[Rfam]
Notes
This 297-nucleotide RNA sequence from Phtheirospermum japonicum belongs to the Rfam family "Plant signal recognition particle RNA". By type it is a non-coding RNA gene.
RNA sequence: GCCGAGCUUUGUAGCGAGAGCUUAUAACCCAAGUGGGGGCAAUGAGUGUUGGGACGUUGGGCCGACCCGGAUGGUAGGGCCUGAAGUAGCUCUGAGUCUAGCCCGCCCGAUCCAAGCGAGGAGUUGGGCCAUGCGACUUGGGCUGAAGCCUGGGUAAUGUGGUUCCUAGAGUGGAGGGAAUGGCGCCAGGCUGGUUUGACAGAGCAGCGAUCACUUCCCGCUCCUUGCAGUGGAAGGAUAACGGGCUGGUGCUACUCAGGCCCAGUGAUGCCCAACGGGUCGGCUAUACAUGCCUCU
Numbered sequence: 001g002c003c004g005a006g007c008u009u010u011g012u013a014g015c016g017a018g019a020g021c022u023u024a025u026a027a028c029c030c031a032a033g034u035g036g037g038g039g040c041a042a043u044g045a046g047u048g049u050u051g052g053g054a055c056g057u058u059g060g061g062c063c064g065a066c067c068c069g070g071a072u073g074g075u076a077g078g079g080c081c082u083g084a085a086g087u088a089g090c091u092c093u094g095a096g097u098c099u100a101g102c103c104c105g106c107c108c109g110a111u112c113c114a115a116g117c118g119a120g121g122a123g124u125u126g127g128g129c130c131a132u133g134c135g136a137c138u139u140g141g142g143c144u145g146a147a148g149c150c151u152g153g154g155u156a157a158u159g160u161g162g163u164u165c166c167u168a169g170a171g172u173g174g175a176g177g178g179a180a181u182g183g184c185g186c187c188a189g190g191c192u193g194g195u196u197u198g199a200c201a202g203a204g205c206a207g208c209g210a211u212c213a214c215u216u217c218c219c220g221c222u223c224c225u226u227g228c229a230g231u232g233g234a235a236g237g238a239u240a241a242c243g244g245g246c247u248g249g250u251g252c253u254a255c256u257c258a259g260g261c262c263c264a265g266u267g268a269u270g271c272c273c274a275a276c277g278g279g280u281c282g283g284c285u286a287u288a289c290a291u292g293c294c295u296c297u
Stems, first nucleotide, its partner, number of pairs: 001040003004023007028037003051296003055292003058288002061284009073272004077263008086255004091251001098249008107237002111234004116228009126165008136155008166171001173218005182211001184209003191202003

Pairs were carried over by alignment from the consensus structure, which is taken from published work. Rfam 15.1 lists 4,988 matches to the family in 266 species. Lineage of the source: Eukaryota > Streptophyta > Spermatophyta > Pentapetalae > Phtheirospermum.